[Rfam]
RNA sequence: AGAGAAAGGAUCCAAAGGGAUCGCAUUGAUCCUAAUUAAGCUGAAUUUAUUCCCAAUAAUUGUUAAAUUUUUCUCAUUAUAAAGAUAGAAAAAAGUCCCAAAAAUCUGCUUCAUUUUCAGGAUCAUGCGAUCUCUUUGGCUUCAUCCUU
Numbered sequence: 001a002g003a004g005a006a007a008g009g010a011u012c013c014a015a016a017g018g019g020a021u022c023g024c025a026u027u028g029a030u031c032c033u034a035a036u037u038a039a040g041c042u043g044a045a046u047u048u049a050u051u052c053c054c055a056a057u058a059a060u061u062g063u064u065a066a067a068u069u070u071u072u073c074u075c076a077u078u079a080u081a082a083a084g085a086u087a088g089a090a091a092a093a094a095g096u097c098c099c100a101a102a103a104a105u106c107u108g109c110u111u112c113a114u115u116u117u118c119a120g121g122a123u124c125a126u127g128c129g130a131u132c133u134c135u136u137u138g139g140c141u142u143c144a145u146c147c148u149u
Base pairs, nucleotide, nucleotide: 002149003148004147006145008143009142010141012139013138014137015136016135017134018133019132020131021130023128024127025126026125028124029123030122031121032120038117039116040115
RNA: mir-393 microRNA precursor family
Organism: Brassica carinata